Overview:
RNase MRP: a 488-nucleotide RNA from Truncatella angustata. It scores 102 bits against the family's covariance model. From the family's description: RNase MRP is an enzymatically active ribonucleoprotein with two distinct roles in eukaryotes. In mitochondria it plays a direct role in the initiation of mitochondrial DNA replication. In the nucleus it is involved in precursor rRNA processing, where it cleaves the internal transcribed spacer 1 between 18S and 5.8S rRNAs. Despite distinct functions, RNase MRP has been shown to be evolutionarily related to RNase P. Like eukaryotic RNase P, RNase MRP is not catalytically active without associated protein subunits. The organism belongs to Truncatella, within Eukaryota.
RNA sequence: CCCUCGUCCAAAAAAUCGCCAUCGAAGCUACAAACAGAGGAGAGGAACACGUUUCCUCUCCUCACAUUCCUCUUCAGCUUUGGGAGAAAGUCCCCGGACACCUCUGUUCUUCACGGAAUAGAGAUUUGCGGAAACGCGCCGCCACAAAAGCACAGCGGCUUACGCCCUCCCCAUCUGUCUGGUAAUAAUUCUCUUCCGCCCGCCCCAGGUCGUCGCUACAUCUGCAUCCCCGCCCGUGCUCUACCCUCCAACUGGCAUGUGUCGGAUCGUUUCCGUGACGAAGAUAUGAGUCCUCGGUUUCGGCACUGCUGAGCGGAGCUAGACGCGGAAGGGUUUGUCGGAUGACUUCUCUGGCCGUAGGCGGAAGACGUUGCCCGUCUGGGGUUGUGGUAUCAUAUCGUCGAGAUCGAAAGUUAUGCGAUUGCCCUUCACCUCGUCUCGCAAGGGACGACCUGGGUAACUCGAUGGGGCUUAUUCUUGGUGCGAGG
Dot-bracket structure: .((((((((((..((((((..(((((((........(((((((((((.....))))))))))).............)))))).)...[[[.[[[[.........((((........................)))).(((((............))))).........................................................................................................................................................................................................(((.....)))..............................................)))))).(((...........................))).........]]]]]]]....)))).))))))